[Rfam]
RNA sequence: CUCCCCGAAAUGUAUUGAGGUACAGCCUCGCGUGAUGAAUCUGUCUUGUAGAGCACUGACAAGGCUCGGGGGCCUACCAGCCUACCAACCCUUAUCAAACUCCGAAGGGGCAGAGUUUUAACGCGGGAGUGAGGCUGCGAGAGCUAACUUCCGUAGCCGAAAGGGAAACAACCCAGACCGCCAGCUAAGGUCCCCAAAUCAAUGCUCAGUGGAUAAGGAUGUGCCGUUGCAGUGACAGCCAGGAGGUUGGCUUAGAAGCAGCCACCCUUCAAAGAGUGCGUAAUAGCUCACUGGUCGAGUGACGGUGCGCCGAAAAUGAUCGGGGCUCAAGCAUUGUACCGAAGCUGCGGAUUGGCAAGCGAUUUAUCGCUUGCUUCUGGUAGGGGAGCGUUCCAUGCGCGAUGAAGGUACACCGGAAGGAGUAUUGGAGCUAUUGGAAGUGCGGAU
Numbered sequence: 001c002u003c004c005c006c007g008a009a010a011u012g013u014a015u016u017g018a019g020g021u022a023c024a025g026c027c028u029c030g031c032g033u034g035a036u037g038a039a040u041c042u043g044u045c046u047u048g049u050a051g052a053g054c055a056c057u058g059a060c061a062a063g064g065c066u067c068g069g070g071g072g073c074c075u076a077c078c079a080g081c082c083u084a085c086c087a088a089c090c091c092u093u094a095u096c097a098a099a100c101u102c103c104g105a106a107g108g109g110g111c112a113g114a115g116u117u118u119u120a121a122c123g124c125g126g127g128a129g130u131g132a133g134g135c136u137g138c139g140a141g142a143g144c145u146a147a148c149u150u151c152c153g154u155a156g157c158c159g160a161a162a163g164g165g166a167a168a169c170a171a172c173c174c175a176g177a178c179c180g181c182c183a184g185c186u187a188a189g190g191u192c193c194c195c196a197a198a199u200c201a202a203u204g205c206u207c208a209g210u211g212g213a214u215a216a217g218g219a220u221g222u223g224c225c226g227u228u229g230c231a232g233u234g235a236c237a238g239c240c241a242g243g244a245g246g247u248u249g250g251c252u253u254a255g256a257a258g259c260a261g262c263c264a265c266c267c268u269u270c271a272a273a274g275a276g277u278g279c280g281u282a283a284u285a286g287c288u289c290a291c292u293g294g295u296c297g298a299g300u301g302a303c304g305g306u307g308c309g310c311c312g313a314a315a316a317u318g319a320u321c322g323g324g325g326c327u328c329a330a331g332c333a334u335u336g337u338a339c340c341g342a343a344g345c346u347g348c349g350g351a352u353u354g355g356c357a358a359g360c361g362a363u364u365u366a367u368c369g370c371u372u373g374c375u376u377c378u379g380g381u382a383g384g385g386g387a388g389c390g391u392u393c394c395a396u397g398c399g400c401g402a403u404g405a406a407g408g409u410a411c412a413c414c415g416g417a418a419g420g421a422g423u424a425u426u427g428g429a430g431c432u433a434u435u436g437g438a439a440g441u442g443c444g445g446a447u
Stems, first nucleotide, its partner, number of pairs: 001388006011024005026129001027127007036120001037117002040114007051103001052101002057097003061093004068086002070083004133158007141150002163174003178350004183346003189340003198337001200336006217311002221308010238295005244268003249263003269273001274289001278287002351378001354375008389442001391439005399431002407426005413420002
RNA: Bacterial large subunit ribosomal RNA, nucleotides 832 to 1278
Organism: Deinococcus ruber